[Rfam]
This 358-nucleotide RNA from Halobacteroides halobius belongs to the Rfam family "Bacterial RNase P class A". NCBI's taxonomy places the organism under Bacteria, Bacillati, Bacillota, Halobacteroides, Halobacteroides halobius. The base pairs follow the family's consensus structure, which is taken from published work. It is annotated as a ribozyme. The match comes from Rfam's covariance-model search (323 bits).
RNA sequence: UAAGGAGACUAGAUAGUCGCAAGUAUAGUAUAAUGCUAUAUUUGAGGAAAGUCCGAGCUCCAUAGAGUAGGAUGCUGGAUAACCCCCAGCCGGAGUAAUCCGCGGGAAAGUGCCACAGAGAGUAUACCGCCUAAUUAAUAUUAGGUAAGGGUGAAAGGGUGCGGUAAGAGCGCACCGGGUCUUUGGUGACAAAGUCGCAUGGUAAACCCCAUCUGGAGCAAGGCUGAAUAGGGGAAGGUUAAGAGCUACUCGUUCAUCUUCCCGGGUUAGCUGCUUGAGAUAGUAGGUAACUACUAUCCUAGAUGGAUGACUAUUACCUGUAAAGGUACAGAACUCGGCUUACAGGUCUGCUUAUUAU
Numbered sequence: 001u002a003a004g005g006a007g008a009c010u011a012g013a014u015a016g017u018c019g020c021a022a023g024u025a026u027a028g029u030a031u032a033a034u035g036c037u038a039u040a041u042u043u044g045a046g047g048a049a050a051g052u053c054c055g056a057g058c059u060c061c062a063u064a065g066a067g068u069a070g071g072a073u074g075c076u077g078g079a080u081a082a083c084c085c086c087c088a089g090c091c092g093g094a095g096u097a098a099u100c101c102g103c104g105g106g107a108a109a110g111u112g113c114c115a116c117a118g119a120g121a122g123u124a125u126a127c128c129g130c131c132u133a134a135u136u137a138a139u140a141u142u143a144g145g146u147a148a149g150g151g152u153g154a155a156a157g158g159g160u161g162c163g164g165u166a167a168g169a170g171c172g173c174a175c176c177g178g179g180u181c182u183u184u185g186g187u188g189a190c191a192a193a194g195u196c197g198c199a200u201g202g203u204a205a206a207c208c209c210c211a212u213c214u215g216g217a218g219c220a221a222g223g224c225u226g227a228a229u230a231g232g233g234g235a236a237g238g239u240u241a242a243g244a245g246c247u248a249c250u251c252g253u254u255c256a257u258c259u260u261c262c263c264g265g266g267u268u269a270g271c272u273g274c275u276u277g278a279g280a281u282a283g284u285a286g287g288u289a290a291c292u293a294c295u296a297u298c299c300u301a302g303a304u305g306g307a308u309g310a311c312u313a314u315u316a317c318c319u320g321u322a323a324a325g326g327u328a329c330a331g332a333a334c335u336c337g338g339c340u341u342a343c344a345g346g347u348c349u350g351c352u353u354a355u356u357a358u
Stems, first nucleotide, its partner, number of pairs: 001354004006349005012315007020044009049341003053338005058218004065251004070214005075089004090104001091102004105209002110207002112203003127150002129146007158176006177198001178196002181194005222272004232263006243255004279298008
Dot-bracket structure: ((((.(((((.(((((((.(((((((((.......)))))))))....[[[.[[[[[((((...[[[[.(((((((((.......))))(((((....)))).)((...(((((............(((((((((....)))))))..)).......((((((.......))))))(((.(((((....))))))).)..)))..)))))))))))))...((((......((((((.....((((.]]]]))))..)))))).....))))......((((((((....))))))))..........)))))))..................]]]]]]]]...))))).))))....